Description:
Rfam assigns this 72-nucleotide sequence from Cynara cardunculus to the family "Plastid-ycf2 5UTR RNA". The organism belongs to Cynara cardunculus subsp. cardunculus, within Eukaryota.
Nucleotides: 072
Base pairs, nucleotide, nucleotide: 006072007071008070010026011025012024014022040069041068042067044066045065046064047063048062049061050060051059
Number, partner (000 for none) and nucleotide at each position: 001000g002000u003000g004000a005000u006072u007071c008070c009000g010026g011025u012024a013000g014022g015000a016000a017000u018000u019000a020000a021000a022014c023000g024012u025011a026010u027000g028000a029000a030000u031000u032000c033000g034000u035000c036000a037000a038000u039000u040069a041068u042067g043000a044066g045065u046064u047063g048062g049061g050060u051059g052000c053000u054000u055000u056000a057000c058000c059051c060050a061049u062048u063047c064046a065045g066044c067042c068041a069040u070008g071007g072006a

The base pairs follow the family's consensus structure, which was predicted with LocARNA. Rfam classes the family as a cis-regulatory element. The family has 204 seed sequences and 3,521 matches in Rfam 15.1.